[Rfam]
RNA sequence: UUUCUUACCUGAACCAUUUCAGGGCAGAAAAAGAGCGAAAUUGUCAUUUUGCCGGAUUGAGCAGACACGCAGCAAUGGCGUAAGACGUAAUGCGAAAUCAGGCACUUAGCGGGCUGCGGGUUGCGGCCUGGACAACAGUAUGGGAUGCACGGGUUUUCUUUAUUCUCUCAGGCAUUUCCACUAUCUGGUGCUGUUUUCCCUUAUGAAAAACAGGCCACCGACGUUAUUUGCGCCCCUCGCGCGGUCGACAGCCGUGAGGUUGACGACAUUGCACUAAGUCACGGGGCCAUCGGUUGAUACUCGUCCAGGGUAACUAUGCCCGCAGCUGUAAUCACUCA
Numbered sequence: 001u002u003u004c005u006u007a008c009c010u011g012a013a014c015c016a017u018u019u020c021a022g023g024g025c026a027g028a029a030a031a032a033g034a035g036c037g038a039a040a041u042u043g044u045c046a047u048u049u050u051g052c053c054g055g056a057u058u059g060a061g062c063a064g065a066c067a068c069g070c071a072g073c074a075a076u077g078g079c080g081u082a083a084g085a086c087g088u089a090a091u092g093c094g095a096a097a098u099c100a101g102g103c104a105c106u107u108a109g110c111g112g113g114c115u116g117c118g119g120g121u122u123g124c125g126g127c128c129u130g131g132a133c134a135a136c137a138g139u140a141u142g143g144g145a146u147g148c149a150c151g152g153g154u155u156u157u158c159u160u161u162a163u164u165c166u167c168u169c170a171g172g173c174a175u176u177u178c179c180a181c182u183a184u185c186u187g188g189u190g191c192u193g194u195u196u197u198c199c200c201u202u203a204u205g206a207a208a209a210a211c212a213g214g215c216c217a218c219c220g221a222c223g224u225u226a227u228u229u230g231c232g233c234c235c236c237u238c239g240c241g242c243g244g245u246c247g248a249c250a251g252c253c254g255u256g257a258g259g260u261u262g263a264c265g266a267c268a269u270u271g272c273a274c275u276a277a278g279u280c281a282c283g284g285g286g287c288c289a290u291c292g293g294u295u296g297a298u299a300c301u302c303g304u305c306c307a308g309g310g311u312a313a314c315u316a317u318g319c320c321c322g323c324a325g326c327u328g329u330a331a332u333c334a335c336u337c338a
Stems, first nucleotide, its partner, number of pairs: 003040001005038002008035001017030004050104004055099002061093003067088003072079002111329001112327010129307005135301001142178004151169003187216003191213004196208002199205001217294005232287005246265002249262005